[Rfam]
RNA: SAM/SAH riboswitch aptamer
Organism: Roseobacter sp. GAI101
RNA sequence: AAUCUGCCACAACGGCUUCCUGACGUGGCUAUUUAAUCUAUUGGAGCA
Numbered sequence: 001a002a003u004c005u006g007c008c009a010c011a012a013c014g015g016c017u018u019c020c021u022g023a024c025g026u027g028g029c030u031a032u033u034u035a036a037u038c039u040a041u042u043g044g045a046g047c048a
Base pairs, nucleotide, nucleotide: 005031006029007028008027009026010025013022014021015047016046017045019044020043
Dot-bracket structure: ....((((((..(([[[.[[))..))))).)...........]]]]].